[Rfam]
RNA: Class I RNA from Dictyostelium
Organism: Dictyostelium discoideum
RNA sequence: GGGCUUCUUACAGCAAAAUAAAGUAAAUAAAUAAGGUGUAGAAUAGGUGGGAGACUAUGUCGGCCGUGAAAUACCACCACUAAUUAAAAAAACUUCGAUCCCUG
Numbered sequence: 001g002g003g004c005u006u007c008u009u010a011c012a013g014c015a016a017a018a019u020a021a022a023g024u025a026a027a028u029a030a031a032u033a034a035g036g037u038g039u040a041g042a043a044u045a046g047g048u049g050g051g052a053g054a055c056u057a058u059g060u061c062g063g064c065c066g067u068g069a070a071a072u073a074c075c076a077c078c079a080c081u082a083a084u085u086a087a088a089a090a091a092a093c094u095u096c097g098a099u100c101c102c103u104g
Stems, first nucleotide, its partner, number of pairs: 001102003005098002